A member of the RNA family "Bacterial antisense RNA HPnc0260" from Sulfurimonas marina, 124 nucleotides long. A search with the family's covariance model found it, with a score of 66 bits.

Nucleotides: 124
Base pairs, nucleotide, nucleotide: 004016005015006014007013036046037045087120088119089118090117091116095114096113098112099111100110101109
Number, partner (000 for none) and nucleotide at each position: 001000a002000g003000a004016a005015c006014a007013a008000a009000a010000a011000u012000a013007u014006u015005g016004u017000g018000c019000a020000u021000u022000c023000u024000u025000u026000a027000u028000a029000a030000a031000g032000u033000c034000a035000g036046a037045u038000a039000u040000u041000u042000a043000a044000a045037a046036u047000a048000a049000a050000a051000u052000a053000u054000a055000u056000a057000a058000u059000u060000a061000u062000u063000u064000u065000a066000g067000g068000a069000u070000a071000a072000g073000g074000a075000u076000a077000a078000g079000a080000u081000a082000u083000a084000a085000a086000u087120g088119g089118u090117g091116g092000u093000c094000a095114c096113g097000a098112u099111u100110g101109g102000a103000c104000u105000u106000g107000a108000a109101c110100c111099a112098a113096c114095g115000a116091c117090c118089a119088c120087u121000u122000c123000c124000a
On this family, see Sharma et al., Nature 2010: "The primary transcriptome of the major human pathogen Helicobacter pylori".
Pairs were carried over by alignment from the consensus structure, which was predicted with CMfinder.
NCBI's taxonomy places the organism under Bacteria, Epsilonproteobacteria, Campylobacterales, Sulfurimonadaceae, Sulfurimonas.